This 173-nucleotide RNA sequence from Paenactinomyces guangxiensis belongs to the Rfam family "Group II catalytic intron D1-D4-3".
RNA sequence: UCCACCGCGAGGUGGAAUCUGAAGGAAGUCGGCGGCAAACCUCCGGUCUGAGGAACACGAACUUCAUAUGAGGCUAGCAUUUGUUGGAUGAGUCUGCAUACCAAGACAAAGUCCUUACUGCCGAAGGCGAAUGAGAGUAAAUGAAGCAGAUAGAUGGAGAGGAAGAUCAUGUC
Dot-bracket structure: ((((((....))))))...........(.((....(....((((((((((...........((((((.....(((..((((((..((((..((((........))))...)))).............))))))..)))..)))))))))))...))))).....)....)).)
On this family, see Bonen and Vogel, Trends Genet 2001: "The ins and outs of group II introns". The family has 406 seed sequences and 4,274 matches in Rfam 15.1. Pairs were carried over by alignment from the consensus structure. The organism belongs to Paenactinomyces, within Bacteria.